A member of the RNA family "Selenocysteine transfer RNA" from Mitsuaria sp. PDC51, 92 nucleotides long. Pairs were carried over by alignment from the consensus structure, which is taken from published work.
RNA sequence: GGAGAGGCAACGACCCCGGUGGAUCGGCCGGACUUCAAAUCCGGUGAAUGGCGCCAUGCGCCGUUGGGUGGGUUCGACCCCCACGCCCCUCC
Numbered sequence: 001g002g003a004g005a006g007g008c009a010a011c012g013a014c015c016c017c018g019g020u021g022g023a024u025c026g027g028c029c030g031g032a033c034u035u036c037a038a039a040u041c042c043g044g045u046g047a048a049u050g051g052c053g054c055c056a057u058g059c060g061c062c063g064u065u066g067g068g069u070g071g072g073u074u075c076g077a078c079c080c081c082c083a084c085g086c087c088c089c090u091c092c
Base pairs, nucleotide, nucleotide: 001092002091003090004089006087007086008085011026012025013024015022016021027045028044029043030042031041032040047065048064049063050062051061069083070082071081072080